[Rfam]
This 181-nucleotide RNA sequence from Isobaculum melis belongs to the Rfam family "Listeria sRNA rli28".
Rfam 15.1 lists 345 matches to the family in 181 species.
A reference for the family is Michels et al. (1991), "Muscarinic cholinergic control of vasopressin secretion from the acute hypothalamoneurohypophysial explant", Neuroendocrinology.
Lineage of the source: Bacteria > Bacillota > Bacilli > Lactobacillales > Isobaculum.
RNA sequence: AAAUUGAUUGCGUAUUUUUAUAGUGUAGAAAAGUAAAAAAGAUGGUGGCUAACUCUCUGAUAAAGGGGUGAUGCCUAUGGUUCUUGGCUUUAUCCCUAGAAAGAAUAAGCAUGUCCGUUUUUGAAGCACUGACACUAAUGAUUGCCUUUGCAACUUUAGUUGUGCUGAUGAUGGAUUAUAA
Numbered sequence: 001a002a003a004u005u006g007a008u009u010g011c012g013u014a015u016u017u018u019u020a021u022a023g024u025g026u027a028g029a030a031a032a033g034u035a036a037a038a039a040a041g042a043u044g045g046u047g048g049c050u051a052a053c054u055c056u057c058u059g060a061u062a063a064a065g066g067g068g069u070g071a072u073g074c075c076u077a078u079g080g081u082u083c084u085u086g087g088c089u090u091u092a093u094c095c096c097u098a099g100a101a102a103g104a105a106u107a108a109g110c111a112u113g114u115c116c117g118u119u120u121u122u123g124a125a126g127c128a129c130u131g132a133c134a135c136u137a138a139u140g141a142u143u144g145c146c147u148u149u150g151c152a153a154c155u156u157u158a159g160u161u162g163u164g165c166u167g168a169u170g171a172u173g174g175a176u177u178a179u180a181a
Stems, first nucleotide, its partner, number of pairs: 045154002048151002064097008073088002113133003117129002120126001159176003165170001